A member of the RNA family "Alphaproteobacteria transfer-messenger RNA" from Bradyrhizobium japonicum, 368 nucleotides long.
RNA sequence: CCCCUGUCUUUCUAAACCUUUGCCCCCUAUAUUGGGGGUGCCGGUUCGCCGGCUAUGGAAAUAAACGGUCGUCGUAAUAAACCAUUCGGACCCGGGGGCGGUACCCGGCGCCUCCACCAAAGCCCACCAGCGGGCUAGCCCUAGAAGCGGGUUUUGGCGGGGGCGAAAUAGGAUCGACGAGGGCGUAAAGGGCGUGCUUUUUCCCGGUAUUGUUCCGCCGUUAUCGGGCUACUGCAAUAGUUGCCAACGACAACUUUGCUCCGGUUGCUCAGGCUGCGUAACGCAGUUUGAAAGACCAUCUUAAAGUCCUAACGGGUUAAGCUCCGUUAGGCGGGGUUCGGAGGCACCUGGCAACAGAAGCCUCCACU
Numbered sequence: 001c002c003c004c005u006g007u008c009u010u011u012c013u014a015a016a017c018c019u020u021u022g023c024c025c026c027c028u029a030u031a032u033u034g035g036g037g038g039u040g041c042c043g044g045u046u047c048g049c050c051g052g053c054u055a056u057g058g059a060a061a062u063a064a065a066c067g068g069u070c071g072u073c074g075u076a077a078u079a080a081a082c083c084a085u086u087c088g089g090a091c092c093c094g095g096g097g098g099c100g101g102u103a104c105c106c107g108g109c110g111c112c113u114c115c116a117c118c119a120a121a122g123c124c125c126a127c128c129a130g131c132g133g134g135c136u137a138g139c140c141c142u143a144g145a146a147g148c149g150g151g152u153u154u155u156g157g158c159g160g161g162g163g164c165g166a167a168a169u170a171g172g173a174u175c176g177a178c179g180a181g182g183g184c185g186u187a188a189a190g191g192g193c194g195u196g197c198u199u200u201u202u203c204c205c206g207g208u209a210u211u212g213u214u215c216c217g218c219c220g221u222u223a224u225c226g227g228g229c230u231a232c233u234g235c236a237a238u239a240g241u242u243g244c245c246a247a248c249g250a251c252a253a254c255u256u257u258g259c260u261c262c263g264g265u266u267g268c269u270c271a272g273g274c275u276g277c278g279u280a281a282c283g284c285a286g287u288u289u290g291a292a293a294g295a296c297c298a299u300c301u302u303a304a305a306g307u308c309c310u311a312a313c314g315g316g317u318u319a320a321g322c323u324c325c326g327u328u329a330g331g332c333g334g335g336g337u338u339c340g341g342a343g344g345c346a347c348c349u350g351g352c353a354a355c356a357g358a359a360g361c362c363u364c365c366a367c368u
Stems, first nucleotide, its partner, number of pairs: 040053005057204005067198003070194004082183002086180003092108005109165007205220004210231001212229001215227002334349004340365006

By type it is a non-coding RNA gene.
The family is grouped with related families in Rfam's "tRNA clan".